[Rfam]
RNA sequence: UACCUGUUUUCCCUAUUUCUCACAUUCGCCGGCACGGGCGGCCGGGUGCCCAAUAUAUCCUUGGAUAGACUCCAUUGGAUAGAUUAAAAAGGGUCGCCGCUCGGGGCGGAUGGAGGCUUAAC
Numbered sequence: 001u002a003c004c005u006g007u008u009u010u011c012c013c014u015a016u017u018u019c020u021c022a023c024a025u026u027c028g029c030c031g032g033c034a035c036g037g038g039c040g041g042c043c044g045g046g047u048g049c050c051c052a053a054u055a056u057a058u059c060c061u062u063g064g065a066u067a068g069a070c071u072c073c074a075u076u077g078g079a080u081a082g083a084u085u086a087a088a089a090a091g092g093g094u095c096g097c098c099g100c101u102c103g104g105g106g107c108g109g110a111u112g113g114a115g116g117c118u119u120a121a122c
Stems, first nucleotide, its partner, number of pairs: 023112008035103008048094004
Annotation: A member of the RNA family "t44 RNA" from Candidatus Contendibacter odensensis, 122 nucleotides long. Taxonomically the source falls in Candidatus Contendibacter odensensis (Bacteria, Gammaproteobacteria, Candidatus Competibacteraceae, Candidatus Contendibacter). This family consists of a number of bacterial RNA genes of between 135 and 170 bases in length. The t44 gene has been identified in several species of enteric bacteria but homologs have also been identified in Pseudomonas and Coxiella species. The t44 gene is found between the map and rpsB genes in all species in the full alignment apart from Shigella flexneri. The function of this RNA is unknown. The match comes from Rfam's covariance-model search (65 bits). The base pairs follow the family's consensus structure, which was predicted with LocARNA. The family's RNA type in Rfam is small RNA.